Rfam assigns this 77-nucleotide RNA sequence from Felis catus to the family "Small nucleolar RNA SNORD73". The sequence is in the family's curated seed alignment. The family has 25 seed sequences and 769 matches in Rfam 15.1. For this family Rfam cites "A novel snoRNA (U73) is encoded within the introns of the human and mouse ribosomal protein S3a genes" (Rebane et al., Gene, 1998). Taxonomically the source falls in Felis (Eukaryota, Bilateria, Tetrapoda, Amniota). The family's RNA type in Rfam is C/D-box small nucleolar RNA. Its family is annotated with nucleolus and RNA processing in the Gene Ontology.

RNA sequence: AAUGAAUGAUGACAAAAUGUUUUGGUCCCAAAUGAUACUGAUAUACUGAUUAUACUGUUAGGUUUAUUUCUGACAUU
Numbered sequence: 001a002a003u004g005a006a007u008g009a010u011g012a013c014a015a016a017a018u019g020u021u022u023u024g025g026u027c028c029c030a031a032a033u034g035a036u037a038c039u040g041a042u043a044u045a046c047u048g049a050u051u052a053u054a055c056u057g058u059u060a061g062g063u064u065u066a067u068u069u070c071u072g073a074c075a076u077u
Stems, first nucleotide, its partner, number of pairs: 001077004
Dot-bracket structure: ((((.....................................................................))))